Shown here is a 74-nucleotide sequence from Ectocarpus siliculosus, a member of the family "tRNA". A search with the family's covariance model found it, with a score of 69 bits. The family's RNA type in Rfam is transfer RNA. Taxonomically the source falls in Ectocarpus (Eukaryota, Sar, Phaeophyceae, Ectocarpaceae). Rfam's curators write: Transfer RNA (tRNA) molecules are approximately 80 nucleotides in length. The family's consensus secondary structure is taken from published work.

Nucleotides: 074
Stems, first nucleotide, its partner, number of pairs: 001073002004070004010026004028044005050066005
Number, partner (000 for none) and nucleotide at each position: 001073g002072c003000c004070c005069c006068u007067g008000u009000a010026a011025c012024u013023c014000a015000a016000u017000u018000g019000g020000u021000u022000a023013g024012a025011g026010u027000g028044u029043c030042g031041g032040u033000c034000u035000u036000a037000u038000g039000a040032g041031c042030c043029g044028a045000a046000a047000g048000u049000u050066g051065c052064g053063g054062g055000u056000u057000c058000a059000a060000g061000u062054c063053c064052c065051g066050c067007c068006a069005g070004g071000a072002g073001c074000a